[Rfam]
RNA sequence: CUUCAACGACCCCAGCCACAACGGCCGAUCCGCCGGCCGCCCUUGACCGUACGUAGCGAUCAGCGCCUGCGCCUC
Numbered sequence: 001c002u003u004c005a006a007c008g009a010c011c012c013c014a015g016c017c018a019c020a021a022c023g024g025c026c027g028a029u030c031c032g033c034c035g036g037c038c039g040c041c042c043u044u045g046a047c048c049g050u051a052c053g054u055a056g057c058g059a060u061c062a063g064c065g066c067c068u069g070c071g072c073c074u075c
Base pairs, nucleotide, nucleotide: 015025016024017023031071032070033069038065039064044059047056049054
RNA: ASpks TB sRNA
Organism: Streptomyces zagrosensis